[Rfam]
RNA sequence: UUUGCUGUAGGGCUCGUCAAAGGGUAACUGGCGUAUUUAUUAAACUGCUAGCUGCCUUUUGAAGGGCAAUAUUGCAAG
Numbered sequence: 001u002u003u004g005c006u007g008u009a010g011g012g013c014u015c016g017u018c019a020a021a022g023g024g025u026a027a028c029u030g031g032c033g034u035a036u037u038u039a040u041u042a043a044a045c046u047g048c049u050a051g052c053u054g055c056c057u058u059u060u061g062a063a064g065g066g067c068a069a070u071a072u073u074g075c076a077a078g
Stems, first nucleotide, its partner, number of pairs: 004075002007072003012067004017062004023056002028051005

mir-980 microRNA precursor family: a 78-nucleotide RNA from Phyllotreta striolata. A search with the family's covariance model found it, with a score of 62 bits.